Rfam assigns this 77-nucleotide RNA sequence from Reinekea blandensis to the family "Pseudomonas sRNA P9".
It is annotated as a non-coding RNA gene.
RNA sequence: AACAUUAUGAUCAUCAUUCCAUAGUGAAUGGUGGGUCAGCGUUUAUUUGUCCAAAACCCGCCAAACCGGCGGGUUUU
Numbered sequence: 001a002a003c004a005u006u007a008u009g010a011u012c013a014u015c016a017u018u019c020c021a022u023a024g025u026g027a028a029u030g031g032u033g034g035g036u037c038a039g040c041g042u043u044u045a046u047u048u049g050u051c052c053a054a055a056a057c058c059c060g061c062c063a064a065a066c067c068g069g070c071g072g073g074u075u076u077u
Base pairs, nucleotide, nucleotide: 011034012033013032014031015030016029017028018027019026054076055075056074057073058072059071060070061069062068
About the family: This small RNA (sRNA) was computationally identified in the genome of the opportunistic pathogen Pseudomonas aeruginosa and its expression verified by northern blot analysis. P9 appears to be conserved in several Pseudomonas species in addition to Bordetella spp. In both Pseudomonas and Bordetella spp P9 appears to be located upstream of a predicted threonine dehydratase gene. P9 has a predicted Rho independent terminator at the 3' end but the function of P9 is unknown. This sRNA also appears to be present in the Betaproteobacteria (Burkholderia and Ralstonia species). The literature on the family includes a 2006 paper in Nucleic Acids Res by Livny et al., "Identification of 17 Pseudomonas aeruginosa sRNAs and prediction of sRNA-encoding genes in 10 diverse pathogens using the bioinformatic tool sRNAPredict2".